[Rfam]
RNA sequence: UAUGAUGCAUACAGUUAUUUUUCGCUUCUUUUUUUACUUUAGCGCCUGAUUACAGGAGGCUUGCGCGUAAGAAUAGAAACGAAAAAUAGCGCCGAAGCCUCCCAUCGUGGAGGCUUUUUUGUU
Numbered sequence: 001u002a003u004g005a006u007g008c009a010u011a012c013a014g015u016u017a018u019u020u021u022u023c024g025c026u027u028c029u030u031u032u033u034u035u036a037c038u039u040u041a042g043c044g045c046c047u048g049a050u051u052a053c054a055g056g057a058g059g060c061u062u063g064c065g066c067g068u069a070a071g072a073a074u075a076g077a078a079a080c081g082a083a084a085a086a087u088a089g090c091g092c093c094g095a096a097g098c099c100u101c102c103c104a105u106c107g108u109g110g111a112g113g114c115u116u117u118u119u120u121g122u123u
Base pairs, nucleotide, nucleotide: 014090015089016088017087019085020084021083022082023081024080026078027077028076029075031073032072034070035069036068037067040052053063054062055061056060094117095116096115097114098113099112100111101110102109

Phenylalanine leader peptide: a 123-nucleotide sequence from Yersinia pestis. Its family is annotated with cellular amino acid metabolic process in the Gene Ontology. By type it is a cis-regulatory leader.